[Rfam]
RNA sequence: GAAGGAAAGACACCUAGCCCGUGUUUUGCAUGCCGCUAUAAGCAUGUAAGUUAGUCAAGCCCGAGUACAGGAUAGCCGCUCGGUCAAACUUACAGUAAGUCUUCUUA
Number, nucleotide and partner (000 for none) at each position: 001g000002a000003a000004g000005g000006a000007a027008a026009g025010a024011c023012a022013c021014c000015u000016a000017g000018c000019c000020c000021g013022u012023g011024u010025u009026u008027u007028g000029c000030a000031u000032g000033c000034c000035g000036c000037u000038a000039u000040a103041a102042g101043c099044a000045u094046g093047u000048a091049a090050g089051u088052u000053a000054g000055u000056c000057a000058a000059g000060c000061c083062c082063g081064a080065g000066u078067a000068c000069a000070g077071g076072a000073u000074a000075g000076c071077c070078g066079c000080u064081c063082g062083g061084u000085c000086a000087a000088a051089c050090u049091u048092a000093c046094a045095g000096u000097a000098a000099g043100u000101c042102u041103u040104c000105u000106u000107a000
Annotation:
cow-rumen-2 RNA: a 107-nucleotide sequence. It is annotated as a small RNA. It is one of the family's seed sequences. Pairs were carried over by alignment from the consensus structure, which is taken from published work.